RNA: SAM riboswitch aptamer (S box leader)
RNA sequence: CACUCAUCGAGACCGGCUGAGGGACAGGCCCUUUGAAGCCGGGGCAACCUGCGGAAUGUUUCCGCCACGGUGCCAACUCCUGCGGGGAUGCUUCGGCAUCCACCGGUAGAUGGGCG
Numbered sequence: 001c002a003c004u005c006a007u008c009g010a011g012a013c014c015g016g017c018u019g020a021g022g023g024a025c026a027g028g029c030c031c032u033u034u035g036a037a038g039c040c041g042g043g044g045c046a047a048c049c050u051g052c053g054g055a056a057u058g059u060u061u062c063c064g065c066c067a068c069g070g071u072g073c074c075a076a077c078u079c080c081u082g083c084g085g086g087g088a089u090g091c092u093u094c095g096g097c098a099u100c101c102a103c104c105g106g107u108a109g110a111u112g113g114g115c116g
Stems, first nucleotide, its partner, number of pairs: 001116001003114006013042005021031003025082004043074004048070002051065003078108001083105003087101001